[Rfam]
RNA sequence: GGGAGUUUGAGAGCAACGUAUGUCCAGUACGAGAGGAACAACAUGCGGUCGCCUCUGGUGAGCAGUUGUCUGACAAGGCAUGCUGCACAGCUACGCGGCAAAUCAUAAGCGCUGAAAGCAUCUAAGCGCGAAGGAUGCCUCGAAAAGAGACUCCCAUUCAAGAACAGCAAUAUGUAGUGAGCACAAGUCUUGCCGGAUUUGUGUAAGUGAAAUAUACCGGGGACUGGUGACAGUAACCGGGGUUCAAGACGAGGACACGCGUAAAAGACGCGAUAGGUGAGAUAGGCGGUGUAAACACGGAGCAUUAGCGACGUGCGUAGCCGGCCAUUUUCAAUAGUCCGAGUG
Numbered sequence: 001g002g003g004a005g006u007u008u009g010a011g012a013g014c015a016a017c018g019u020a021u022g023u024c025c026a027g028u029a030c031g032a033g034a035g036g037a038a039c040a041a042c043a044u045g046c047g048g049u050c051g052c053c054u055c056u057g058g059u060g061a062g063c064a065g066u067u068g069u070c071u072g073a074c075a076a077g078g079c080a081u082g083c084u085g086c087a088c089a090g091c092u093a094c095g096c097g098g099c100a101a102a103u104c105a106u107a108a109g110c111g112c113u114g115a116a117a118g119c120a121u122c123u124a125a126g127c128g129c130g131a132a133g134g135a136u137g138c139c140u141c142g143a144a145a146a147g148a149g150a151c152u153c154c155c156a157u158u159c160a161a162g163a164a165c166a167g168c169a170a171u172a173u174g175u176a177g178u179g180a181g182c183a184c185a186a187g188u189c190u191u192g193c194c195g196g197a198u199u200u201g202u203g204u205a206a207g208u209g210a211a212a213u214a215u216a217c218c219g220g221g222g223a224c225u226g227g228u229g230a231c232a233g234u235a236a237c238c239g240g241g242g243u244u245c246a247a248g249a250c251g252a253g254g255a256c257a258c259g260c261g262u263a264a265a266a267g268a269c270g271c272g273a274u275a276g277g278u279g280a281g282a283u284a285g286g287c288g289g290u291g292u293a294a295a296c297a298c299g300g301a302g303c304a305u306u307a308g309c310g311a312c313g314u315g316c317g318u319a320g321c322c323g324g325c326c327a328u329u330u331u332c333a334a335u336a337g338u339c340c341g342a343g344u345g
Stems, first nucleotide, its partner, number of pairs: 001155008011141003017047007048099005056093003062086005067080005102136003109129005253340004258272004278333003281329003285326002287323003292317001296315004302309001